[Rfam]
RNA: Small nucleolar RNA SNORD75
Organism: Monodelphis domestica
RNA sequence: AGCCUAUGAUGUCCUAAGAGUAGUGGACAGAAAUGAUUUCUGACAAUAAUAUACUGAGGCU
Numbered sequence: 001a002g003c004c005u006a007u008g009a010u011g012u013c014c015u016a017a018g019a020g021u022a023g024u025g026g027a028c029a030g031a032a033a034u035g036a037u038u039u040c041u042g043a044c045a046a047u048a049a050u051a052u053a054c055u056g057a058g059g060c061u
Stems, first nucleotide, its partner, number of pairs: 001061004